[Rfam]
RNA sequence: UCUUCAUUUCACCUGCUCUCUCACCGGUCAGAUAGACGAGAGAGUGUGCGAAAUGAAGAGA
Numbered sequence: 001u002c003u004u005c006a007u008u009u010c011a012c013c014u015g016c017u018c019u020c021u022c023a024c025c026g027g028u029c030a031g032a033u034a035g036a037c038g039a040g041a042g043a044g045u046g047u048g049c050g051a052a053a054u055g056a057a058g059a060g061a
Stems, first nucleotide, its partner, number of pairs: 001059007010050001012048001014046004019041004
The family of this 61-nucleotide RNA from Pristionchus pacificus is "mir-8364 microRNA precursor family".
The family's consensus secondary structure was predicted with RNAalifold.
Gene Ontology terms of the family: miRNA-mediated post-transcriptional gene silencing and RISC complex.